The family of this 244-nucleotide sequence from Ornithorhynchus anatinus is "Small nucleolar RNA SNORD17". By type it is a C/D-box small nucleolar RNA. Rfam links the family to the GO terms nucleolus and RNA processing. The snoRNA HBI-43 belongs to the C/D family of snoRNAs, guiding 2'O-ribose methylation at position U3797 of the 28S rRNA. Pseudouridylation in position U3797 is predicted to be guided by the H/ACA snoRNA ACA48. A reference for the family is Huttenhofer et al. (2001), "RNomics: an experimental approach that identifies 201 candidates for novel, small, non-messenger RNAs in mouse", EMBO J.
RNA sequence: GUGACAUGAUGAUGAAGUUUAUCCAUUCUCUGAGCUUGCAGACUCUGCCCUCCUUCAGCAUCGAGGUUCCUGUUCUAGGGCCUCGGUGUUUCGCGGCCUUCCGUGCACUCCAGCCUUCCAGUGUUCUACUGGGGGUGCGACCGUGUCCGGUUGACUGCUUGAGGGUGUGGUGGAGUUAGCAGGGUGGGAACCCCUUCUGGGGGGAUCCCAUCUCGGCAAAGACGAAUGAUGGGAGUCUGAUCAC
Numbered sequence: 001g002u003g004a005c006a007u008g009a010u011g012a013u014g015a016a017g018u019u020u021a022u023c024c025a026u027u028c029u030c031u032g033a034g035c036u037u038g039c040a041g042a043c044u045c046u047g048c049c050c051u052c053c054u055u056c057a058g059c060a061u062c063g064a065g066g067u068u069c070c071u072g073u074u075c076u077a078g079g080g081c082c083u084c085g086g087u088g089u090u091u092c093g094c095g096g097c098c099u100u101c102c103g104u105g106c107a108c109u110c111c112a113g114c115c116u117u118c119c120a121g122u123g124u125u126c127u128a129c130u131g132g133g134g135g136u137g138c139g140a141c142c143g144u145g146u147c148c149g150g151u152u153g154a155c156u157g158c159u160u161g162a163g164g165g166u167g168u169g170g171u172g173g174a175g176u177u178a179g180c181a182g183g184g185u186g187g188g189a190a191c192c193c194c195u196u197c198u199g200g201g202g203g204g205a206u207c208c209c210a211u212c213u214c215g216g217c218a219a220a221g222a223c224g225a226a227u228g229a230u231g232g233g234a235g236u237c238u239g240a241u242c243a244c
Base pairs, nucleotide, nucleotide: 010243011242012241013240017236018235019234020233024228025227026226027225028224030221031220034217035216038180039179041177042176043175044174045173046172047171048170049169050167052165053164054163055161057090058089059088060087061086062085063084066082068080069079070078071077093158094157095156096155098153106145107144111139115135116134117133118132119131120130121129122128123127182213183212184211185210186209187208188207189206191204192203193202194201